[Rfam]
RNA sequence: AAUAGUUGUUAUGCUUACACUAACUGUGAUAACUCUGUAGGCAUUCAUUCGAUGUCAAACAUAAUGAAAACCUAUUUAUGAAAGCCGUUGUUCAAGUGAUUAGCCUAGUCGUGAUUAGCGUGGUGGUGAUUAUUAUCCCACCGUGCGGGGCUGCACUUGGACGAAGAAAAGCUUACUAAACAAGCUUAAAUCUCAAGAAAACCCCCGCACCAACUGGUCGGGGUUUUUUUUUGGUAUCAAUCAAGCGACAAGAGAACACUAAAUGAAAAUUAGAAUAUUGUUCUGUCCCUGCGGC
Number, nucleotide and partner (000 for none) at each position: 001a000002a000003u000004a000005g033006u032007u031008g030009u029010u028011a027012u026013g024014c000015u022016u000017a000018c000019a000020c000021u000022a015023a000024c013025u000026g012027u011028g010029a009030u008031a007032a006033c005034u000035c000036u000037g075038u074039a073040g072041g071042c000043a000044u068045u067046c066047a065048u064049u059050c000051g000052a000053u000054g000055u000056c000057a000058a000059a049060c000061a000062u000063a000064a048065u047066g046067a045068a044069a000070a000071c041072c040073u039074a038075u037076u000077u000078a000079u000080g000081a000082a000083a000084g000085c000086c254087g000088u252089u000090g249091u248092u247093c000094a000095a000096g000097u000098g242099a241100u240101u239102a000103g000104c000105c234106u233107a232108g231109u000110c120111g119112u118113g000114a000115u000116u000117a000118g112119c111120g110121u000122g142123g141124u140125g139126g138127u000128g137129a136130u135131u000132a000133u000134u000135a130136u129137c128138c126139c125140a124141c123142c122143g162144u161145g000146c159147g158148g157149g156150g000151c000152u000153g000154c000155a000156c149157u148158u147159g146160g000161a144162c143163g194164a193165a191166g000167a000168a000169a000170a187171g186172c000173u184174u183175a000176c000177u000178a000179a000180a000181c000182a000183a174184g173185c000186u171187u170188a000189a000190a000191u165192c000193u164194c163195a000196a229197g228198a227199a226200a225201a224202c223203c000204c222205c221206c220207g219208c000209a218210c217211c216212a000213a000214c000215u000216g211217g210218u209219c207220g206221g205222g204223g202224u201225u200226u199227u198228u197229u196230u000231u108232u107233g106234g105235u000236a000237u000238c000239a101240a100241u099242c098243a000244a000245g000246c000247g092248a091249c090250a000251a000252g088253a000254g086255a000256a286257c285258a284259c000260u000261a281262a000263a276264u275265g000266a000267a000268a000269a000270u000271u000272a000273g000274a000275a264276u263277a000278u000279u000280g000281u261282u000283c000284u258285g257286u256287c000288c000289c000290u000291g000292c000293g000294g000295c000
RNA: Soft rot Enterobacteriaceae Rev 39 5'UTR